The family of this 114-nucleotide RNA from Caenorhabditis nigoni is "Potassium channel RNA editing signal". Taxonomically the source falls in Caenorhabditis (Eukaryota, Metazoa, Eumetazoa, Rhabditomorpha). From the family's description: This family represents a group of sequences related to the human potassium channel Kv1.1 hairpin element which directs the efficient modification of an adenosine to inosine by an adenosine deaminase acting on RNA (ADAR). The ADAR modification causes an isoleucine/valine recoding event which lies in the ion-conducting pore of the potassium channel. A reference for the family is Bhalla et al. (2004), "Control of human potassium channel inactivation by editing of a small mRNA hairpin", Nat Struct Mol Biol. Rfam 15.1 lists 14,095 matches to the family in 1,000 species. The match comes from Rfam's covariance-model search (58 bits).

RNA sequence: UGUAGGUAUGGAGAUCUGGUACCAUUGAGUCCGUUUGGUAAAGUGGUCGGCAGUAUGUGUGCCUUGAUUGGUGUCCUUACAUUGGCUCUUCCAGUUCCCAUUAUUGUAAGUUUU
Numbered sequence: 001u002g003u004a005g006g007u008a009u010g011g012a013g014a015u016c017u018g019g020u021a022c023c024a025u026u027g028a029g030u031c032c033g034u035u036u037g038g039u040a041a042a043g044u045g046g047u048c049g050g051c052a053g054u055a056u057g058u059g060u061g062c063c064u065u066g067a068u069u070g071g072u073g074u075c076c077u078u079a080c081a082u083u084g085g086c087u088c089u090u091c092c093a094g095u096u097c098c099c100a101u102u103a104u105u106g107u108a109a110g111u112u113u114u
Base pairs, nucleotide, nucleotide: 002113004111007108008107009106010105011104013102014101015100018097019096021095022094037077038076040074049063050062051061